[Rfam]
RNA sequence: GGUACAUUUAUGAUGUCACAUCCUUAAACCAAAUCUGGUGGGCUGUGACUGAAGAUCUGCAUU
Numbered sequence: 001g002g003u004a005c006a007u008u009u010a011u012g013a014u015g016u017c018a019c020a021u022c023c024u025u026a027a028a029c030c031a032a033a034u035c036u037g038g039u040g041g042g043c044u045g046u047g048a049c050u051g052a053a054g055a056u057c058u059g060c061a062u063u
Stems, first nucleotide, its partner, number of pairs: 001063003005059001015049006022042003029038003
Shown here is a 63-nucleotide sequence from Hymenochirus boettgeri, a member of the family "Selenocysteine insertion sequence 1". The source organism's lineage runs through Eukaryota, Opisthokonta, Tetrapoda, Batrachia and Hymenochirus. Rfam's curators write: The incorporation of selenocysteine into a protein sequence is directed by an in-frame UGA codon (usually a stop codon) within the coding region of the mRNA. Selenoprotein mRNAs contain a conserved secondary structure in the 3' UTR that is required for the distinction of UGA stop from UGA selenocysteine. The selenocysteine insertion sequence (SECIS) is around 60 nt in length and adopts a hairpin structure which is sufficiently well-defined and conserved to act as a computational screen for selenoprotein genes. A reference for the family is Walczak et al. (1996), "A novel RNA structural motif in the selenocysteine insertion element of eukaryotic selenoprotein mRNAs", RNA. The base pairs follow the family's consensus structure, which is taken from published work.